The record is a 333-nucleotide sequence from Coemansia sp. RSA 1591, which matches "Group I catalytic intron" in Rfam. The match comes from Rfam's covariance-model search (103 bits). Pairs were carried over by alignment from the consensus structure, which is taken from published work. Rfam's curators write: Group I catalytic introns are large self-splicing ribozymes. They catalyse their own excision from mRNA, tRNA and rRNA precursors in a wide range of organisms. The core secondary structure consists of 9 paired regions (P1-P9). Taxonomically the source falls in Coemansia (Eukaryota, Opisthokonta, Kickxellomycetes, Kickxellales).
[Rfam]
RNA sequence: GUAUAUUCGUACUUGUACAGGGGGCUAAGAGUGUGUGUGAAAGCAUGCGCUAGUCUUUGAUUUAAUUUCAGGUUGAUCAAGGGCAACACUAUCAAAUUGCGGGGACCUCCUAAAGCUCUUGCUACUAAUCUCUGCUGGAAACAGCAGGGAGGCCAGGUCAGCGACCUCGGGUAUAGUAAAAACGCAAGAGAUGAGCCUGUGAGGGCCAAUGGACAAUCCGCAGCCAAGCCCUAAUGUUAUAUUUAACGAUGGGUGCAGUUCACAGACUAAAUGGUAGUGGGUGUUAUUUAUUUAAUGCUUAAGUUAUAGUCGGUCCUGGUGGGAAACCAUCAA
Numbered sequence: 001g002u003a004u005a006u007u008c009g010u011a012c013u014u015g016u017a018c019a020g021g022g023g024g025c026u027a028a029g030a031g032u033g034u035g036u037g038u039g040a041a042a043g044c045a046u047g048c049g050c051u052a053g054u055c056u057u058u059g060a061u062u063u064a065a066u067u068u069c070a071g072g073u074u075g076a077u078c079a080a081g082g083g084c085a086a087c088a089c090u091a092u093c094a095a096a097u098u099g100c101g102g103g104g105a106c107c108u109c110c111u112a113a114a115g116c117u118c119u120u121g122c123u124a125c126u127a128a129u130c131u132c133u134g135c136u137g138g139a140a141a142c143a144g145c146a147g148g149g150a151g152g153c154c155a156g157g158u159c160a161g162c163g164a165c166c167u168c169g170g171g172u173a174u175a176g177u178a179a180a181a182a183c184g185c186a187a188g189a190g191a192u193g194a195g196c197c198u199g200u201g202a203g204g205g206c207c208a209a210u211g212g213a214c215a216a217u218c219c220g221c222a223g224c225c226a227a228g229c230c231c232u233a234a235u236g237u238u239a240u241a242u243u244u245a246a247c248g249a250u251g252g253g254u255g256c257a258g259u260u261c262a263c264a265g266a267c268u269a270a271a272u273g274g275u276a277g278u279g280g281g282u283g284u285u286a287u288u289u290a291u292u293u294a295a296u297g298c299u300u301a302a303g304u305u306a307u308a309g310u311c312g313g314u315c316c317u318g319g320u321g322g323g324a325a326a327c328c329a330u331c332a333a
Stems, first nucleotide, its partner, number of pairs: 001036007087279005093273002098222006108213003223259002228254004236247004263312001265311005281298006318331005
Dot-bracket structure: (((((((......................)))))))..................................................(((((.((...((((((....(((....................................................................................................)))...))))))((...((((....((((....))))...))))...))...[.[[[[[..)).))))).((((((......))))))........]]]]]].....(((((....)))))..